[Rfam]
RNA sequence: CCUUUCUAAUGGAGUGAGGGUCUGAAAAACUCAGACAUUGGGUGUGUUGUCAUCAGCUUCAUCUCCCUCAACCCACGAGAUAGGAGUUAAAUAACAGCACUACAUUU
Numbered sequence: 001c002c003u004u005u006c007u008a009a010u011g012g013a014g015u016g017a018g019g020g021u022c023u024g025a026a027a028a029a030c031u032c033a034g035a036c037a038u039u040g041g042g043u044g045u046g047u048u049g050u051c052a053u054c055a056g057c058u059u060c061a062u063c064u065c066c067c068u069c070a071a072c073c074c075a076c077g078a079g080a081u082a083g084g085a086g087u088u089a090a091a092u093a094a095c096a097g098c099a100c101u102a103c104a105u106u107u
Stems, first nucleotide, its partner, number of pairs: 044100006055088006062080004
The record is a 107-nucleotide RNA from Hevea brasiliensis, which matches "Small nucleolar RNA snoR97" in Rfam. For this family Rfam cites "Experimental RNomics: identification of 140 candidates for small non-messenger RNAs in the plant Arabidopsis thaliana" (Marker et al., Curr Biol, 2002). Rfam links the family to the GO terms nucleolus and RNA processing. The family has 7 seed sequences and 862 matches in Rfam 15.1. The source organism's lineage runs through Eukaryota, Streptophytina, Mesangiospermae, Malpighiales and Hevea. The base pairs follow the family's consensus structure, which was predicted with WAR.